[Rfam]
RNA sequence: UUCUUAUCAAGAGCGACCGAGGGACUGGCCCGGUGACGUCGCGGCAACCCGCCUGAAAAGGUACGGUGCCAAUUCCAGCAAAGCCGCACAGCGGUUUUGACAGAUAAGGA
Numbered sequence: 001u002u003c004u005u006a007u008c009a010a011g012a013g014c015g016a017c018c019g020a021g022g023g024a025c026u027g028g029c030c031c032g033g034u035g036a037c038g039u040c041g042c043g044g045c046a047a048c049c050c051g052c053c054u055g056a057a058a059a060g061g062u063a064c065g066g067u068g069c070c071a072a073u074u075c076c077a078g079c080a081a082a083g084c085c086g087c088a089c090a091g092c093g094g095u096u097u098u099g100a101c102a103g104a105u106a107a108g109g110a
Stems, first nucleotide, its partner, number of pairs: 001110008013042005021031003025078004043070004048066002052060001074102001079099008
Dot-bracket structure: ((((((((....(((((...(((.[[[[)))......)))))((((.((..(.......)....))))))...(]]]]((((((((.....))))))))..)))))))))
A member of the RNA family "SAM riboswitch aptamer (S box leader)" from Trichlorobacter lovleyi, 110 nucleotides long.
Lineage of the source: Bacteria > Thermodesulfobacteriota > Desulfuromonadia > Geobacteraceae > Trichlorobacter lovleyi.